Shown here is a 166-nucleotide RNA sequence from Clostridium butyricum, a member of the family "Lysine riboswitch aptamer". The base pairs follow the family's consensus structure, which is taken from published work. About the family: Riboswitches are metabolite binding domains within certain messenger RNAs that serve as precision sensors for their corresponding targets.
[Rfam]
RNA sequence: ACCUAUGGUAGAGGUGCUGUUUAUAAAGAGUAACUAUAAGGAGCUGGCAAGCUUUGAUAGAUAGUGAAAGGUAUAGCAGCCGAAGAGAUAAAUUAGGCAUAUAUUAUUUCUGGGCAUGUAUAAAAUAUAUACAUGACUGUCACGUUAGUGGAGAGCUACAAGGAUU
Numbered sequence: 001a002c003c004u005a006u007g008g009u010a011g012a013g014g015u016g017c018u019g020u021u022u023a024u025a026a027a028g029a030g031u032a033a034c035u036a037u038a039a040g041g042a043g044c045u046g047g048c049a050a051g052c053u054u055u056g057a058u059a060g061a062u063a064g065u066g067a068a069a070g071g072u073a074u075a076g077c078a079g080c081c082g083a084a085g086a087g088a089u090a091a092a093u094u095a096g097g098c099a100u101a102u103a104u105u106a107u108u109u110c111u112g113g114g115c116a117u118g119u120a121u122a123a124a125a126u127a128u129a130u131a132c133a134u135g136a137c138u139g140u141c142a143c144g145u146u147a148g149u150g151g152a153g154a155g156c157u158a159c160a161a162g163g164a165u166u
Stems, first nucleotide, its partner, number of pairs: 006161001008159004016080006023074003033065005040058001084111008094101002112138002115135008140151004